[Rfam]
RNA sequence: UGACGUUCACCCCUCAACUCAGGGGCGCAGAUCACCAGGCCAAGGAACGGGGACCUGGA
Numbered sequence: 001u002g003a004c005g006u007u008c009a010c011c012c013c014u015c016a017a018c019u020c021a022g023g024g025g026c027g028c029a030g031a032u033c034a035c036c037a038g039g040c041c042a043a044g045g046a047a048c049g050g051g052g053a054c055c056u057g058g059a
Base pairs, nucleotide, nucleotide: 004049005048006047007046008045010025011024012023013022014021035058036057037056038055039054040052041051
The record is a 59-nucleotide sequence from Synechococcus sp. CC9605, which matches "Glutamine-II riboswitch aptamer" in Rfam. It is one of the family's seed sequences. Taxonomically the source falls in Synechococcus (Bacteria, Cyanophyceae, Synechococcales, Synechococcaceae). Rfam links the family to the GO term glutamine binding.